This 195-nucleotide RNA sequence from Actinosynnema mirum belongs to the Rfam family "Actinobacteria sRNA Ms_IGR-5". A reference for the family is Li et al. (2013), "Identification of small RNAs in Mycobacterium smegmatis using heterologous Hfq", RNA. It is annotated as a small RNA. It scores 80 bits against the family's covariance model.
[Rfam]
RNA sequence: ACACGAGGAAGGAGGUGGUCCCAAGUUGUGUAGCUAUAGGACUCGUCGUGAGGUGGCUGUCCGCUAGGACCCGGCCUGAUCUCGGCUGAGCCUGGCGAAUACCAGGCAGCCACCCGCCCCCGACUGCUCCGAGCCAGUCCACUCGGCCCGCGCACCGAGCUCCGCGCGCGGGAAGCGGCACCGGGGUCGUCUCUU
Dot-bracket structure: .............((((((....................................))))))(((((((.(.(((((.......))))).)))))))).................((.(((((..(((((((.((...............................)).))).....)))).))))).))......
The organism belongs to Actinosynnema mirum, within Bacteria.